[Rfam]
RNA sequence: UCUUCCGAAGUUUCUCUCAGGAUAGCUGGGGUUUAUUCAGUUUUACCAGGUAAAGCUAAUGAUUAGAGGUAUCGGUGGGCUGAGCCUGUCGACCUAUUCUCAAACUUUGAAUGGGUAAGAUCCCGCUUUGUUUCUUAAUUGAACAUUCGGGCUGAAUGAGAACCCCAAGUGGGCCAUUUUUGGUAAGCAGAACUGGCGAUGAGGGAUGCACCUAACGCUGGGUUAAGGUGCCUAAAUGCCUGCUCAUCAGAUACCAUAAAAGGUGUUAUUUCAUCCCGACAGCAGGACGGUGGUCAUGGAAGUUGAAAUCCGCUAAGGAGUGUGUAACAACUCACCUGCCGAAUGAACUAGCCCUGAAAAUGGAUGGCGCUGAAGCAGGUUACCGAAACCCGGCCAUUGCGGCUGUUGCUAUGUCGCAAUGUGUAGGAAGACGUGAACAUUGUUGCGAAGCGCAGUGCGUGAGCCUGUGUGGAACAGUGUUUAGUGCAGAU
Number, nucleotide and partner (000 for none) at each position: 001u431002c430003u429004u428005c427006c426007g000008a000009a000010g000011u024012u000013u022014c021015u020016c000017u000018c000019a000020g015021g014022a013023u000024a011025g000026c000027u167028g166029g165030g164031g163032u162033u161034u000035a000036u000037u000038c000039a000040g000041u120042u119043u118044u117045a116046c115047c114048a000049g000050g000051u000052a000053a108054a106055g105056c000057u000058a000059a000060u102061g101062a100063u000064u000065a097066g000067a095068g094069g093070u000071a000072u092073c091074g090075g089076u088077g087078g000079g085080c000081u000082g000083a000084g000085c079086c000087u077088g076089u075090c074091g073092a072093c069094c068095u067096a000097u065098u000099c000100u062101c061102a060103a000104a000105c055106u054107u000108u053109g000110a000111a000112u000113g000114g047115g046116u045117a044118a043119g042120a041121u000122c150123c149124c000125g147126c000127u000128u000129u145130g144131u143132u142133u000134c000135u000136u000137a000138a000139u000140u000141g000142a132143a131144c130145a129146u000147u125148c000149g123150g122151g000152c000153u000154g000155a000156a000157u000158g000159a000160g000161a033162a032163c031164c030165c029166c028167a027168a000169g000170u000171g000172g000173g197174c196175c195176a194177u000178u192179u191180u190181u189182g188183g000184u000185a000186a000187g000188c182189a181190g180191a179192a178193c000194u176195g175196g174197c173198g000199a000200u000201g000202a213203g212204g211205g000206a000207u000208g000209c000210a000211c204212c203213u202214a000215a000216c000217g394218c393219u392220g391221g390222g000223u388224u000225a000226a000227g384228g383229u382230g000231c000232c000233u000234a000235a000236a381237u000238g380239c000240c000241u377242g376243c375244u000245c000246a000247u000248c000249a000250g000251a000252u000253a000254c000255c000256a000257u000258a000259a000260a000261a355262g354263g353264u000265g352266u351267u350268a349269u000270u347271u346272c345273a344274u343275c000276c000277c000278g000279a000280c000281a000282g339283c338284a337285g336286g335287a000288c312289g311290g310291u000292g000293g000294u306295c305296a000297u000298g000299g000300a000301a000302g000303u000304u000305g295306a294307a000308a000309u000310c290311c289312g288313c317314u000315a000316a000317g313318g333319a000320g000321u000322g331323u330324g000325u000326a000327a000328c000329a000330a323331c322332u000333c318334a000335c286336c285337u284338g283339c282340c000341g000342a000343a274344u273345g272346a271347a270348c000349u268350a267351g266352c265353c263354c262355u261356g000357a000358a000359a000360a000361u000362g000363g000364a000365u000366g000367g000368c000369g000370c000371u000372g000373a000374a000375g243376c242377a241378g000379g000380u238381u236382a229383c228384c227385g000386a000387a000388a223389c000390c221391c220392g219393g218394c217395c421396a420397u419398u418399g417400c416401g415402g414403c413404u000405g000406u000407u000408g000409c000410u000411a000412u000413g403414u402415c401416g400417c399418a398419a397420u396421g395422u000423g000424u000425a000426g006427g005428a004429a003430g002431a001432c486433g000434u483435g482436a481437a480438c479439a478440u477441u476442g475443u474444u000445g000446c000447g000448a000449a000450g470451c469452g000453c000454a000455g000456u000457g464458c463459g000460u000461g000462a000463g458464c457465c000466u000467g000468u000469g451470u450471g000472g000473a000474a443475c442476a441477g440478u439479g438480u437481u436482u435483a434484g000485u000486g432487c000488a000489g000490a000491u000
The record is a 491-nucleotide part of an RNA from Babesia microti, which matches "Eukaryotic large subunit ribosomal RNA" in Rfam. A search with the family's covariance model found it, with a score of 3172 bits. NCBI's taxonomy places the organism under Eukaryota, Alveolata, Piroplasmida, Babesia, Babesia microti. For this family Rfam cites "The comparative RNA web (CRW) site: an online database of comparative sequence and structure information for ribosomal, intron, and other RNAs" (Cannone et al., BMC Bioinformatics, 2002). Gene Ontology terms of the family: ribosome and structural constituent of ribosome.